RNA sequence: UAAUGAAGAUAGAAAAAGAGUUGAGCUGGAACUCAACUCCAUGUAGAACCGUUUAAGACGGUGACUCAGAGUUUUCAUAUUUUUAA
Number, nucleotide and partner (000 for none) at each position: 001u000002a000003a000004u000005g000006a000007a000008g000009a000010u000011a000012g000013a000014a000015a000016a000017a000018g000019a000020g000021u000022u035023g034024a033025g032026c000027u000028g000029g000030a000031a000032c025033u024034c023035a022036a000037c000038u000039c000040c000041a000042u000043g000044u000045a000046g000047a000048a062049c061050c060051g059052u058053u057054u000055a000056a000057g053058a052059c051060g050061g049062u048063g000064a000065c000066u000067c000068a000069g000070a000071g000072u000073u000074u000075u000076c000077a000078u000079a000080u000081u000082u000083u000084u000085a000086a000
A member of the RNA family "RNA anti-toxin A" from Streptococcus hyointestinalis, 86 nucleotides long. Rfam links the family to the GO terms mRNA binding and negative regulation of translation. For this family Rfam cites "Abundance of type I toxin-antitoxin systems in bacteria: searches for new candidates and discovery of novel families" (Fozo et al., Nucleic Acids Res, 2010). The family's consensus secondary structure was predicted with RNAalifold. Taxonomically the source falls in Streptococcus (Bacteria, Bacillota, Lactobacillales, Streptococcaceae).